[Rfam]
RNA sequence: UGGUUUUUCUCUUUGGUUAUCUAGCUGUAUGAGUGUAUGUGAUAUCAUAAAGCUAGAGAACCGAAUGUAAAAACCC
Numbered sequence: 001u002g003g004u005u006u007u008u009c010u011c012u013u014u015g016g017u018u019a020u021c022u023a024g025c026u027g028u029a030u031g032a033g034u035g036u037a038u039g040u041g042a043u044a045u046c047a048u049a050a051a052g053c054u055a056g057a058g059a060a061c062c063g064a065a066u067g068u069a070a071a072a073a074c075c076c
Base pairs, nucleotide, nucleotide: 002075003074004073005072007070008069010067012065013064014063015062016061017060018059020057021056022055023054024053025052026051028049029048030047031046032045
RNA: mir-9/mir-79 microRNA precursor family